[Rfam]
Shown here is an 86-nucleotide RNA sequence from Anaerosacchariphilus polymeriproducens, a member of the family "c-di-GMP-I riboswitch aptamer". It scores 75 bits against the family's covariance model. Rfam's curators write: GEMM was predicted in a large-scale screen for bacterial structured RNA regulatory elements.
Nucleotides: 086
Stems, first nucleotide, its partner, number of pairs: 012037002017032006040080004046076002048072003055066004
Number, partner (000 for none) and nucleotide at each position: 001000a002000u003000a004000a005000a006000g007000a008000u009000u010000u011000a012037g013036c014000a015000a016000a017032c018031u019030u020029g021028u022027u023000g024000a025000a026000a027022a028021g029020c030019a031018a032017g033000g034000a035000c036013g037012c038000a039000a040080a041079g042078c043077c044000a045000a046076g047075g048072g049071u050070c051000u052000a053000a054000a055066c056065u057064a058063u059000c060000u061000c062000a063058a064057u065056a066055g067000u068000a069000u070050g071049a072048c073000a074000g075047c076046c077043g078042g079041u080040u081000g082000c083000c084000u085000u086000c